[Rfam]
RNA sequence: CUUGGCCGUGUAAAAGUGCUUACAGUGCAGGUAGCUUUUUGAGAUCUACUGCAAUGCAAGCACUUCUUACAUUACCAU
Numbered sequence: 001c002u003u004g005g006c007c008g009u010g011u012a013a014a015a016g017u018g019c020u021u022a023c024a025g026u027g028c029a030g031g032u033a034g035c036u037u038u039u040u041g042a043g044a045u046c047u048a049c050u051g052c053a054a055u056g057c058a059a060g061c062a063c064u065u066c067u068u069a070c071a072u073u074a075c076c077a078u
Stems, first nucleotide, its partner, number of pairs: 005075001008072001010070003014065008023056002026053003030050005
The family of this 78-nucleotide RNA sequence from Sus scrofa is "mir-17 microRNA precursor family". Its family is annotated with RISC complex and miRNA-mediated post-transcriptional gene silencing in the Gene Ontology. For this family Rfam cites "microRNAs: tiny regulators with great potential" (Ambros, Cell, 2001). The base pairs follow the family's consensus structure, which was predicted with RNAalifold. Rfam's curators write: This family represents the microRNA (miRNA) precursor mir-17, family, which includes mir-20, mir-91, and mir-103. miRNAs are transcribed as ~70nt precursors (modelled here) and subsequently processed by the Dicer enzyme to give a ~22nt product. In this case the mature sequence comes from the 3' arm of the precursor. The extents of the hairpin precursors are not generally known and are estimated based on hairpin prediction.